[Rfam]
This 43-nucleotide sequence from Nocardioides immobilis belongs to the Rfam family "L31-Actinobacteria ribosomal protein leader".
A reference for the family is Eckert and Weinberg (2020), "Discovery of 20 novel ribosomal leader candidates in bacteria and archaea", BMC Microbiol.
The family's RNA type in Rfam is cis-regulatory leader.
RNA sequence: UCGGCUCCGGUUCACGCCUGCACAAGCACGGCGACCCGGAGCA
Number, nucleotide and partner (000 for none) at each position: 001u000002c000003g000004g042005c041006u000007c039008c038009g037010g036011u000012u000013c000014a000015c033016g032017c031018c030019u028020g027021c026022a000023c000024a000025a000026g021027c020028a019029c000030g018031g017032c016033g015034a000035c000036c010037c009038g008039g007040a000041g005042c004043a000